[Rfam]
RNA sequence: CUUCAGCGACCCCAGCCACAACGGCCGGUCGGCGGGCCGGUCCUGACCGUAGGUGGCCAGCAGCGCGUCGGCCUC
Numbered sequence: 001c002u003u004c005a006g007c008g009a010c011c012c013c014a015g016c017c018a019c020a021a022c023g024g025c026c027g028g029u030c031g032g033c034g035g036g037c038c039g040g041u042c043c044u045g046a047c048c049g050u051a052g053g054u055g056g057c058c059a060g061c062a063g064c065g066c067g068u069c070g071g072c073c074u075c
Stems, first nucleotide, its partner, number of pairs: 015025003038065002043060003047056003
Shown here is a 75-nucleotide RNA from Streptomyces uncialis, a member of the family "ASpks TB sRNA".